[Rfam]
Fluoride riboswitch aptamer (crcB RNA motif): a 65-nucleotide sequence from Pusillimonas sp. ANT_WB101.
The organism belongs to Pusillimonas, within Bacteria.
The base pairs follow the family's consensus structure, which is taken from published work.

RNA sequence: AAUGAAUAAGGAGAUGGUAUUCCUCCUUAACCGCCCUGCCCCGGGCUGAUGAUGCCUACGUUAAC
Number, nucleotide and partner (000 for none) at each position: 001a000002a000003u000004g000005a000006a000007u000008a000009a000010g026011g025012a024013g023014a000015u000016g056017g055018u054019a053020u052021u051022c000023c013024u012025c011026c010027u000028u000029a000030a000031c000032c000033g046034c045035c044036c043037u000038g000039c000040c000041c000042c000043g036044g035045g034046c033047u000048g000049a000050u000051g021052a020053u019054g018055c017056c016057u000058a000059c000060g000061u000062u000063a000064a000065c000